Group II catalytic intron D1-D4-3: a 174-nucleotide sequence from Desulfosporosinus orientis. It scores 97 bits against the family's covariance model. Pairs were carried over by alignment from the consensus structure.
RNA sequence: UCCAACAUGAGGCACAUUCUGAAGGAAGCGUGAUGAGCAAAAUUCCGGUCCGAGGAACACGAAGCGUAUAAGGCAUUCGAAGUGGGAUGAGUCUGCUAAACGAGACAAAAUCCAAUAAACUGCACAGACACGGGGAUGUAAAUACGGAGGGUAUAUGGGAUGAAAGUUACGUGU
Numbered sequence: 001u002c003c004a005a006c007a008u009g010a011g012g013c014a015c016a017u018u019c020u021g022a023a024g025g026a027a028g029c030g031u032g033a034u035g036a037g038c039a040a041a042a043u044u045c046c047g048g049u050c051c052g053a054g055g056a057a058c059a060c061g062a063a064g065c066g067u068a069u070a071a072g073g074c075a076u077u078c079g080a081a082g083u084g085g086g087a088u089g090a091g092u093c094u095g096c097u098a099a100a101c102g103a104g105a106c107a108a109a110a111u112c113c114a115a116u117a118a119a120c121u122g123c124a125c126a127g128a129c130a131c132g133g134g135g136a137u138g139u140a141a142a143u144a145c146g147g148a149g150g151g152u153a154u155a156u157g158g159g160a161u162g163a164a165a166g167u168u169a170c171g172u173g174u
Stems, first nucleotide, its partner, number of pairs: 001016001006011001028174005037167002042161006048152004065146004073139003077135002082131003085113004091106004